The family of this 114-nucleotide RNA sequence from Rugositalea oryzae is "Rhizobiales sRNA Atu_At1".
The base pairs follow the family's consensus structure, which was predicted with CMfinder.
The family has 33 seed sequences and 200 matches in Rfam 15.1.
For this family Rfam cites "Deep sequencing uncovers numerous small RNAs on all four replicons of the plant pathogen Agrobacterium tumefaciens" (Wilms et al., RNA Biol, 2012).
It is annotated as a small RNA.

[Rfam]
RNA sequence: ACACGCCGGGUGGCAACCGGUCACAAUGGGGAACGACGGACGCAGUUGAUUUUGCCGGUUUCUAACUGCGGCAGCAGCGCAUCGGUACGCGCCGGCGUCUAACCUGUUCCCGGC
Dot-bracket structure: .....((((.((((.....)))).((((((....((((..(((((((................)))))))((..(........))).........))))...)))))).)))).